A member of the RNA family "Eukaryotic small subunit ribosomal RNA" from Gregarina sp. Phaedon/Daegwallyeong/2010, 152 nucleotides of a longer RNA. Its Rfam clan is "SSU clan". On this family, see Yusupov et al., Science 2001: "Crystal structure of the ribosome at 5.5 A resolution". The base pairs follow the family's consensus structure, which is taken from published work. Its family is annotated with structural constituent of ribosome and ribosome in the Gene Ontology.
[Rfam]
RNA sequence: CCGCCCGUCGCUUCAACCGAUUGGAUGAUUCGGCAAAUUUCGUGGACAUUAGCAGCUUUAUGCUGCCGAUGGAAGCAAUGUGAGCCACAUUAUCUAGAGGAUGAAGAAGUCGUAACACGGUAUCCGUAGGUGAACCUGCGGAUGGAUCAUUA
Number, nucleotide and partner (000 for none) at each position: 001c119002c000003g116004c000005c000006c112007g111008u000009c109010g000011c106012u105013u104014c103015a102016a000017c100018c099019g000020a000021u096022u000023g095024g094025a093026u092027g091028a090029u089030u000031c000032g086033g085034c084035a000036a000037a081038u080039u000040u078041c000042g076043u075044g000045g000046a000047c071048a070049u069050u068051a000052g066053c065054a064055g063056c062057u000058u000059u000060a000061u000062g056063c055064u054065g053066c052067c000068g050069a049070u048071g047072g000073a000074a000075g043076c042077a000078a040079u000080g038081u037082g000083a000084g034085c033086c032087a000088c000089a029090u028091u027092a026093u025094c024095u023096a021097g000098a000099g018100g017101a000102u015103g014104a013105a012106g011107a000108a000109g009110u000111c007112g006113u000114a000115a000116c003117a000118c000119g001120g000121u144122a143123u142124c141125c140126g139127u138128a137129g136130g135131u000132g000133a000134a000135c130136c129137u128138g127139c126140g125141g124142a123143u122144g121145g000146a000147u000148c000149a000150u000151u000152a000